This 59-nucleotide RNA sequence from Tupaia belangeri belongs to the Rfam family "mir-139 microRNA precursor family". Rfam 15.1 lists 598 matches to the family in 559 species. A reference for the family is Murchison et al. (2008), "Conservation of small RNA pathways in platypus", Genome Res.
[Rfam]
RNA sequence: UCUACAGUGCACGUGUCUCCAGUGUGGCUCAGAGGCUGGAGACGCGGCCCUGUCGGAGU
Numbered sequence: 001u002c003u004a005c006a007g008u009g010c011a012c013g014u015g016u017c018u019c020c021a022g023u024g025u026g027g028c029u030c031a032g033a034g035g036c037u038g039g040a041g042a043c044g045c046g047g048c049c050c051u052g053u054c055g056g057a058g059u
Stems, first nucleotide, its partner, number of pairs: 001057003004053004009048002012046012